Shown here is a 112-nucleotide RNA sequence from Salinibacillus xinjiangensis, a member of the family "SAM riboswitch aptamer (S box leader)". The source organism's lineage runs through Bacteria, Bacillota, Bacilli, Bacillaceae and Salinibacillus.

RNA sequence: UUCUUAUCCAGAGAGAGGGAGGGACUGACCCUAUGAUCUCUCGGCAACCAGUUCUUUAUUUUAAAGGGCCCGGUGCCAAUUUCAGAGGCAGCAUGUCUGCCGAAGAUGAGGA
Numbered sequence: 001u002u003c004u005u006a007u008c009c010a011g012a013g014a015g016a017g018g019g020a021g022g023g024a025c026u027g028a029c030c031c032u033a034u035g036a037u038c039u040c041u042c043g044g045c046a047a048c049c050a051g052u053u054c055u056u057u058a059u060u061u062u063a064a065a066g067g068g069c070c071c072g073g074u075g076c077c078a079a080u081u082u083c084a085g086a087g088g089c090a091g092c093a094u095g096u097c098u099g100c101c102g103a104a105g106a107u108g109a110g111g112a
Stems, first nucleotide, its partner, number of pairs: 001112008013042005021031003025085004043077004048073002051069006081104001087101005